This 109-nucleotide sequence from Sorghum bicolor belongs to the Rfam family "MIR5565 microRNA precursor family". Gene Ontology terms of the family: miRNA-mediated post-transcriptional gene silencing and RISC complex.

RNA sequence: CAAGUUGAAUUCACAUUAAUCCACAUGUGUUAGAGUGGAUUGAAGUGAAACUUGAACUAAAUUACACCUCAAUUCACCCUAACAUAUGUGGAUUGAGAUAAAUCCGAUA
Numbered sequence: 001c002a003a004g005u006u007g008a009a010u011u012c013a014c015a016u017u018a019a020u021c022c023a024c025a026u027g028u029g030u031u032a033g034a035g036u037g038g039a040u041u042g043a044a045g046u047g048a049a050a051c052u053u054g055a056a057c058u059a060a061a062u063u064a065c066a067c068c069u070c071a072a073u074u075c076a077c078c079c080u081a082a083c084a085u086a087u088g089u090g091g092a093u094u095g096a097g098a099u100a101a102a103u104c105c106g107a108u109a
Stems, first nucleotide, its partner, number of pairs: 004108004009103003013099001016096017035077009045067003
NCBI's taxonomy places the organism under Eukaryota, Streptophyta, Tracheophyta, Panicoideae, Sorghum.
The family's consensus secondary structure was predicted with RNAalifold.